This 94-nucleotide RNA sequence from Firmicutes bacterium CAG:238 belongs to the Rfam family "Glycine riboswitch aptamer".
On this family, see Mandal et al., Science 2004: "A glycine-dependent riboswitch that uses cooperative binding to control gene expression".
A search with the family's covariance model found it, with a score of 60 bits.
The family has 44 seed sequences and 9,425 matches in Rfam 15.1.
RNA sequence: GGAUAGCGUUCUGGAGACGCCCGCUUACGCGGGGGCCGAAGGUGCAAGGCGAAGAAUACGCCAAUCUCUCAGGCAAAAGGACAGAAAGAAAUGA
Numbered sequence: 001g002g003a004u005a006g007c008g009u010u011c012u013g014g015a016g017a018c019g020c021c022c023g024c025u026u027a028c029g030c031g032g033g034g035g036c037c038g039a040a041g042g043u044g045c046a047a048g049g050c051g052a053a054g055a056a057u058a059c060g061c062c063a064a065u066c067u068c069u070c071a072g073g074c075a076a077a078a079g080g081a082c083a084g085a086a087a088g089a090a091a092u093g094a
Stems, first nucleotide, its partner, number of pairs: 007088001009086005020033004035074003038070002042068001044066001048061001